[Rfam]
RNA sequence: UUAUAAGACGUUUUAGCUAUUUAACUGUUUUGUCCCUCUCUGUCAAGGAAAAAAUUCUUCUCGGUCAGAGAGUGACAAAACAGUUCAAUAGCUAAAACAUCCUAUAAC
Numbered sequence: 001u002u003a004u005a006a007g008a009c010g011u012u013u014u015a016g017c018u019a020u021u022u023a024a025c026u027g028u029u030u031u032g033u034c035c036c037u038c039u040c041u042g043u044c045a046a047g048g049a050a051a052a053a054a055u056u057c058u059u060c061u062c063g064g065u066c067a068g069a070g071a072g073u074g075a076c077a078a079a080a081c082a083g084u085u086c087a088a089u090a091g092c093u094a095a096a097a098c099a100u101c102c103u104a105u106a107a108c
Stems, first nucleotide, its partner, number of pairs: 001107005011097011023085006029069004034064002049059002052056001